Shown here is a 130-nucleotide RNA sequence from Thermoanaerobacterium sp. RBIITD, a member of the family "c-di-AMP riboswitch aptamer (ydaO/yuaA leader)".
A search with the family's covariance model found it, with a score of 89 bits.
Rfam links the family to the GO terms regulation of gene expression and cyclic-di-AMP binding.
The base pairs follow the family's consensus structure.
RNA sequence: UAAUGAAAUAAGCCGAAUUCCUAAAGGAAACGGGGGGCCCAAUGAGUGGGGCUAAAUUCGAUAGAAUAGGGUUAAGCUCUCUAAAACCCUAGCCCGACAGCUAACCUCGUAGGCUUUUUUGAGAGAAGUA
Numbered sequence: 001u002a003a004u005g006a007a008a009u010a011a012g013c014c015g016a017a018u019u020c021c022u023a024a025a026g027g028a029a030a031c032g033g034g035g036g037g038c039c040c041a042a043u044g045a046g047u048g049g050g051g052c053u054a055a056a057u058u059c060g061a062u063a064g065a066a067u068a069g070g071g072u073u074a075a076g077c078u079c080u081c082u083a084a085a086a087c088c089c090u091a092g093c094c095c096g097a098c099a100g101c102u103a104a105c106c107u108c109g110u111a112g113g114c115u116u117u118u119u120u121g122a123g124a125g126a127a128g129u130a
Base pairs, nucleotide, nucleotide: 011115012114013113014112018029019028020027030110031109032108033107034106035105040048041047049095050094051093057066058065059064069089070088071087072086